[Rfam]
Background
The family of this 85-nucleotide sequence from Kingdonia uniflora is "mir-160 microRNA precursor family". Pairs were carried over by alignment from the consensus structure, which was predicted with PFOLD. The match comes from Rfam's covariance-model search (64 bits). Taxonomically the source falls in Kingdonia (Eukaryota, Tracheophyta, Spermatophyta, Magnoliopsida).
RNA sequence: AUGUGCCUGGCUCCCUGUAUGCCAUUUCCAGAGUCCAUCAAGGUGUGAUGGCCUUCGAAGAUGGCGUGCUCGGGGCCAUGCAUAU
Numbered sequence: 001a002u003g004u005g006c007c008u009g010g011c012u013c014c015c016u017g018u019a020u021g022c023c024a025u026u027u028c029c030a031g032a033g034u035c036c037a038u039c040a041a042g043g044u045g046u047g048a049u050g051g052c053c054u055u056c057g058a059a060g061a062u063g064g065c066g067u068g069c070u071c072g073g074g075g076c077c078a079u080g081c082a083u084a085u
Base pairs, nucleotide, nucleotide: 001085002084003083004082005081006080008078009077010076011075012074013073014072017069018068019067020066021065022064023063024062027059029057